TPP riboswitch aptamer (THI element): a 113-nucleotide sequence from Streptantibioticus cattleyicolor. On this family, see Rodionov et al., J Biol Chem 2002: "Comparative genomics of thiamin biosynthesis in procaryotes. New genes and regulatory mechanisms". The organism belongs to Streptantibioticus cattleyicolor, within Bacteria. Gene Ontology term of the family: thiamine pyrophosphate binding.

RNA sequence: UAUUGCACUCGCGGGAGCCCGGACGCACCGGGCUGAGAGGGCGGCUGGCCGGCCGCCGACCGUAGAACCUGAUCCGGGUCAUGCCGGCGAAGGGAGGAGCGGGAUAUCCAUGU
Number, nucleotide and partner (000 for none) at each position: 001u000002a000003u000004u000005g000006c101007a000008c099009u098010c097011g063012c062013g061014g060015g000016a000017g033018c032019c031020c030021g029022g000023a000024c000025g000026c000027a000028c000029c021030g020031g019032g018033c017034u000035g000036a000037g000038a000039g000040g057041g056042c055043g054044g053045c052046u051047g000048g000049c000050c000051g046052g045053c044054c043055g042056c041057c040058g000059a000060c014061c013062g012063u011064a000065g000066a000067a000068c093069c092070u091071g000072a000073u000074c087075c086076g085077g084078g000079u000080c000081a000082u000083g000084c077085c076086g075087g074088c000089g000090a000091a070092g069093g068094g000095a000096g000097g010098a009099g008100c000101g006102g000103g000104a000105u000106a000107u000108c000109c000110a000111u000112g000113u000